Shown here is a 109-nucleotide RNA from Papaver nudicaule, a member of the family "Small nucleolar RNA Z103". The family's RNA type in Rfam is C/D-box small nucleolar RNA. The source organism's lineage runs through Eukaryota, Streptophyta, Spermatophyta, Papaveroideae and Papaver. It scores 82 bits against the family's covariance model.

RNA sequence: AUGGAAGUGAUGAUCCUUUCCCCAUAUUAUCAACUAUGAUUAUAAUAUGCGAUUUGUUUAAAUUUCUUUCUCAACAGAAGAGAUUUUCCAAGCCAGUACUCUGAUCCAU
Numbered sequence: 001a002u003g004g005a006a007g008u009g010a011u012g013a014u015c016c017u018u019u020c021c022c023c024a025u026a027u028u029a030u031c032a033a034c035u036a037u038g039a040u041u042a043u044a045a046u047a048u049g050c051g052a053u054u055u056g057u058u059u060a061a062a063u064u065u066c067u068u069u070c071u072c073a074a075c076a077g078a079a080g081a082g083a084u085u086u087u088c089c090a091a092g093c094c095a096g097u098a099c100u101c102u103g104a105u106c107c108a109u
Stems, first nucleotide, its partner, number of pairs: 001109005